MISL RNA: a 909-nucleotide RNA sequence.

[Rfam]
RNA sequence: GGAUAAACCCAGGUGCAAACCUGGACAAUGGUCGGGAGGAACUGGCGUUCCCGGCCCCUGGGAAACCAGACUCAUCAUCCAAUGGAGAAUCUGAUUUCACAGGCCACAUAUCACCGGCUUCCUCGGAGAGGGUCGUUCCUUUCCGUGUCCAACGACCAGGAAGUCAGGCGGUGAGCGGUCCCGUCCCGCGAUGCAAAUCAAAGUGGCGCGAAACGGGAAAACCAGCCGCAAGCCGAGUUACGCCUCAGCCGGUCCGUUGUUUCGGGCCUUGAGGCGGACACAGUCAGUCGACCUACGACUGUCAGUUGCUACUGUGAGCCAGUGUGGUGAUCCACUACCCGGCGGUUUUGAACGAACAAAACGCCGUCGUAUCCGUUCGGUGUCGCAACCGGGCUGAGAAAAGGGGGGAAUGGAACACCGCGGAUUGAGCGGUCCGUUGUGAAUGCGUCGGGAGGCCGGCGGGAAGCAAGGGCGCGCGAUAAGAUCCGAUCGCUGGGAGGCUCUCCCCAAAAGGAGUGGAGUCGUCCAGGCGAGAAGGGAAAGGCAACUUGAGGGGUAAGAGACAAGACCCGUGGCGUGAGGCCAACGAUCCGUGACUUCCAGCUGUUUACAGCCUGUUGCAGAUGCCGACCUCGCGGAAGUGGGGAGGGAUGCACUCAUUCUCAAAAGCAUCCUGAACCGGGUCCGGUGGACGCACGCUUGCAAGGUGUGCAAAGGCCGGGCUGAGAAGUCUCACCCGACAAGCUGGUGGUGGUGACACCGCCGGCCGGUUCCGCUGCGGAACCGAAACGGAAUGCAAUCGUUCAUGCAGACCAGUGCAGCGUCGGGAAACUGACAGCCAGCGACACUCGACGGGUGAAGCUGGGCGCCAAAUGCCAGUGUUCGGGGAAAGAGAGCGUGGCGAGCUCC
Numbered sequence: 001g002g003a004u005a006a007a008c009c010c011a012g013g014u015g016c017a018a019a020c021c022u023g024g025a026c027a028a029u030g031g032u033c034g035g036g037a038g039g040a041a042c043u044g045g046c047g048u049u050c051c052c053g054g055c056c057c058c059u060g061g062g063a064a065a066c067c068a069g070a071c072u073c074a075u076c077a078u079c080c081a082a083u084g085g086a087g088a089a090u091c092u093g094a095u096u097u098c099a100c101a102g103g104c105c106a107c108a109u110a111u112c113a114c115c116g117g118c119u120u121c122c123u124c125g126g127a128g129a130g131g132g133u134c135g136u137u138c139c140u141u142u143c144c145g146u147g148u149c150c151a152a153c154g155a156c157c158a159g160g161a162a163g164u165c166a167g168g169c170g171g172u173g174a175g176c177g178g179u180c181c182c183g184u185c186c187c188g189c190g191a192u193g194c195a196a197a198u199c200a201a202a203g204u205g206g207c208g209c210g211a212a213a214c215g216g217g218a219a220a221a222c223c224a225g226c227c228g229c230a231a232g233c234c235g236a237g238u239u240a241c242g243c244c245u246c247a248g249c250c251g252g253u254c255c256g257u258u259g260u261u262u263c264g265g266g267c268c269u270u271g272a273g274g275c276g277g278a279c280a281c282a283g284u285c286a287g288u289c290g291a292c293c294u295a296c297g298a299c300u301g302u303c304a305g306u307u308g309c310u311a312c313u314g315u316g317a318g319c320c321a322g323u324g325u326g327g328u329g330a331u332c333c334a335c336u337a338c339c340c341g342g343c344g345g346u347u348u349u350g351a352a353c354g355a356a357c358a359a360a361a362c363g364c365c366g367u368c369g370u371a372u373c374c375g376u377u378c379g380g381u382g383u384c385g386c387a388a389c390c391g392g393g394c395u396g397a398g399a400a401a402a403g404g405g406g407g408g409a410a411u412g413g414a415a416c417a418c419c420g421c422g423g424a425u426u427g428a429g430c431g432g433u434c435c436g437u438u439g440u441g442a443a444u445g446c447g448u449c450g451g452g453a454g455g456c457c458g459g460c461g462g463g464a465a466g467c468a469a470g471g472g473c474g475c476g477c478g479a480u481a482a483g484a485u486c487c488g489a490u491c492g493c494u495g496g497g498a499g500g501c502u503c504u505c506c507c508c509a510a511a512a513g514g515a516g517u518g519g520a521g522u523c524g525u526c527c528a529g530g531c532g533a534g535a536a537g538g539g540a541a542a543g544g545c546a547a548c549u550u551g552a553g554g555g556g557u558a559a560g561a562g563a564c565a566a567g568a569c570c571c572g573u574g575g576c577g578u579g580a581g582g583c584c585a586a587c588g589a590u591c592c593g594u595g596a597c598u599u600c601c602a603g604c605u606g607u608u609u610a611c612a613g614c615c616u617g618u619u620g621c622a623g624a625u626g627c628c629g630a631c632c633u634c635g636c637g638g639a640a641g642u643g644g645g646g647a648g649g650g651a652u653g654c655a656c657u658c659a660u661u662c663u664c665a666a667a668a669g670c671a672u673c674c675u676g677a678a679c680c681g682g683g684u685c686c687g688g689u690g691g692a693c694g695c696a697c698g699c700u701u702g703c704a705a706g707g708u709g710u711g712c713a714a715a716g717g718c719c720g721g722g723c724u725g726a727g728a729a730g731u732c733u734c735a736c737c738c739g740a741c742a743a744g745c746u747g748g749u750g751g752u753g754g755u756g757a758c759a760c761c762g763c764c765g766g767c768c769g770g771u772u773c774c775g776c777u778g779c780g781g782a783a784c785c786g787a788a789a790c791g792g793a794a795u796g797c798a799a800u801c802g803u804u805c806a807u808g809c810a811g812a813c814c815a816g817u818g819c820a821g822c823g824u825c826g827g828g829a830a831a832c833u834g835a836c837a838g839c840c841a842g843c844g845a846c847a848c849u850c851g852a853c854g855g856g857u858g859a860a861g862c863u864g865g866g867c868g869c870c871a872a873a874u875g876c877c878a879g880u881g882u883u884c885g886g887g888g889a890a891a892g893a894g895a896g897c898g899u900g901g902c903g904a905g906c907u908c909c
Stems, first nucleotide, its partner, number of pairs: 009024006030056009067093004072088001116165007127142005133155005169235004175229002178226002219262004242275007251268003279316005286300004304549006341368005372397002375394007421488005429477003432473004503516004553738003560734004576637007589625003593621005648675007683723007694712007744767010768786005775822004791814002795810004831880004836875002838867002841863003894908003